[Rfam]
RNA sequence: CCUCUGGAGAGACUCACAAACGAGGAGCACCGAAGGAGCAUGGCCUUUACAAAAUAAAGGUCGAAACUCUCAGGUAAAAAGGACAGGGG
Numbered sequence: 001c002c003u004c005u006g007g008a009g010a011g012a013c014u015c016a017c018a019a020a021c022g023a024g025g026a027g028c029a030c031c032g033a034a035g036g037a038g039c040a041u042g043g044c045c046u047u048u049a050c051a052a053a054a055u056a057a058a059g060g061u062c063g064a065a066a067c068u069c070u071c072a073g074g075u076a077a078a079a080a081g082g083a084c085a086g087g088g089g
Base pairs, nucleotide, nucleotide: 001089002088003087004086005085006084013027014026015025029075030074031073032071033070036069037068038067042062043061044060045059046058047057048056
RNA: Glycine riboswitch aptamer